[Rfam]
This 155-nucleotide RNA from Ruegeria intermedia belongs to the Rfam family "FMN riboswitch aptamer (RFN element)". Rfam's curators write: The RFN element is a highly conserved domain that is found frequently in the 5'-untranslated regions of prokaryotic mRNAs that encode for flavin mononucleotide (FMN) biosynthesis and transport proteins. This element is a metabolite-dependent riboswitch that directly binds FMN in the absence of proteins. In Bacillus subtilis, the riboswitch most likely controls gene expression by causing premature transcription termination within the 5' untranslated region of the ribDEAHT operon and precluding access to the ribosome-binding site of ypaA mRNA.The FMN riboswitch structure, reported in present an FMN-bound six-stem junction, adopts a butterfly-like scaffold, stapled together by opposingly directed but nearly identically folded peripheral domains. NCBI's taxonomy places the organism under Bacteria, Pseudomonadota, Alphaproteobacteria, Roseobacteraceae, Ruegeria.
RNA sequence: CGCCGUUCUCAGGGCGGGGCGAAAUUCCCCACCGGCGGUAUGCGGGCCCCGGCCCGUCAGCCCGCGAGCGGCUCUGUCAUCCAACCGACAGAGUGUCAGCAGAUCUGGUGAGAGGCCAGGGCCGACGGUUACAGUCCGGAUGAAAGAGAACGAGC
Numbered sequence: 001c002g003c004c005g006u007u008c009u010c011a012g013g014g015c016g017g018g019g020c021g022a023a024a025u026u027c028c029c030c031a032c033c034g035g036c037g038g039u040a041u042g043c044g045g046g047c048c049c050c051g052g053c054c055c056g057u058c059a060g061c062c063c064g065c066g067a068g069c070g071g072c073u074c075u076g077u078c079a080u081c082c083a084a085c086c087g088a089c090a091g092a093g094u095g096u097c098a099g100c101a102g103a104u105c106u107g108g109u110g111a112g113a114g115g116c117c118a119g120g121g122c123c124g125a126c127g128g129u130u131a132c133a134g135u136c137c138g139g140a141u142g143a144a145a146g147a148g149a150a151c152g153a154g155c
Base pairs, nucleotide, nucleotide: 004152005151006150007149008148009147010146017029018028019027031135032134033124034123035065036064037063038062060122061121068100069099104120105119106118107117108116126138127137128136